[Rfam]
Nucleotides: 111
Base pairs, nucleotide, nucleotide: 006108007107008106009105010104011103012102013101014100016098018096019095020094021093022092023091024090025089026088027087028086029085030084031083032082035079036078037077038076039075041073042072043071045069046068047067
Number, partner (000 for none) and nucleotide at each position: 001000g002000c003000a004000a005000a006108u007107g008106u009105a010104u011103u012102c013101a014100u015000c016098u017000c018096a019095a020094u021093c022092c023091a024090c025089a026088u027087g028086u029085g030084u031083u032082g033000a034000a035079g036078u037077g038076g039075a040000u041073u042072g043071a044000a045069g046068u047067a048000g049000u050000a051000g052000a053000a054000u055000u056000a057000a058000a059000c060000u061000a062000a063000a064000u065000u066000u067047u068046a069045u070000u071043u072042c073041a074000u075039u076038c077037c078036a079035c080000u081000u082032c083031a084030a085029c086028a087027c088026a089025u090024g091023u092022g093021g094020a095019u096018u097000a098016a099000a100014g101013u102012g103011a104010a105009u106008a107007c108006a109000c110000a111000u

Shown here is a 111-nucleotide RNA from Miscanthus lutarioriparius, a member of the family "MIR5565 microRNA precursor family".